This 55-nucleotide RNA sequence from Candidatus Synechococcus spongiarum belongs to the Rfam family "Glutamine riboswitch aptamer (glnA leader)". The family's consensus secondary structure is taken from published work. It scores 48 bits against the family's covariance model. A reference for the family is Ren et al. (2015), "Structural and Dynamic Basis for Low-Affinity, High-Selectivity Binding of L-Glutamine by the Glutamine Riboswitch", Cell Rep.
RNA sequence: CUCGUUGACCUGAUGCUCAGGCGGAAGUAGGGCCUUCGGCCCGAAGCAACGCACC
Numbered sequence: 001c002u003c004g005u006u007g008a009c010c011u012g013a014u015g016c017u018c019a020g021g022c023g024g025a026a027g028u029a030g031g032g033c034c035u036u037c038g039g040c041c042c043g044a045a046g047c048a049a050c051g052c053a054c055c
Stems, first nucleotide, its partner, number of pairs: 003051005009021005024052001030042003